[Rfam]
RNA sequence: GGACAUCAGGACGAAGUGAGUGGGUUCUUGGACCCAGGAAAGUCCCCGGGCCCUAUGCCGUAGAGAUACGGGCUCGGAAACGAGUAAGCUUCGGGUAUUGGGAUCCGCUUGCCUUCGGGCAAAAGGCUGAGACAUGUGUGGAGCCUGGAUCUCUUUCCGUUGCAACCUUGGCCGAUUUAACACAGUUAUUCACUUGGUCCAUUCAUUUGGACUAACUGAACGGGGAUUACGAUUCUGAUGUC
Numbered sequence: 001g002g003a004c005a006u007c008a009g010g011a012c013g014a015a016g017u018g019a020g021u022g023g024g025u026u027c028u029u030g031g032a033c034c035c036a037g038g039a040a041a042g043u044c045c046c047c048g049g050g051c052c053c054u055a056u057g058c059c060g061u062a063g064a065g066a067u068a069c070g071g072g073c074u075c076g077g078a079a080a081c082g083a084g085u086a087a088g089c090u091u092c093g094g095g096u097a098u099u100g101g102g103a104u105c106c107g108c109u110u111g112c113c114u115u116c117g118g119g120c121a122a123a124a125g126g127c128u129g130a131g132a133c134a135u136g137u138g139u140g141g142a143g144c145c146u147g148g149a150u151c152u153c154u155u156u157c158c159g160u161u162g163c164a165a166c167c168u169u170g171g172c173c174g175a176u177u178u179a180a181c182a183c184a185g186u187u188a189u190u191c192a193c194u195u196g197g198u199c200c201a202u203u204c205a206u207u208u209g210g211a212c213u214a215a216c217u218g219a220a221c222g223g224g225g226a227u228u229a230c231g232a233u234u235c236u237g238a239u240g241u242c
Stems, first nucleotide, its partner, number of pairs: 002242010014195006022035005040228002044225004059070004072085005088166001090164001093158003097154001101152003117146004132139002197212005
Dot-bracket structure: .((((((((((..((((((..(((((....)))))....[[..[[[[...........((((....)))).(((((....)))))..(.(..(((.(...(((.............((((...........((....))...))))...))).).))).....).).......................)))))).(((((......))))).........]]]].]]....))))))))))
RNase MRP: a 242-nucleotide RNA from Papaver nudicaule. Rfam classes the family as a ribozyme. NCBI's taxonomy places the organism under Eukaryota, Streptophyta, Streptophytina, Euphyllophyta, Papaver.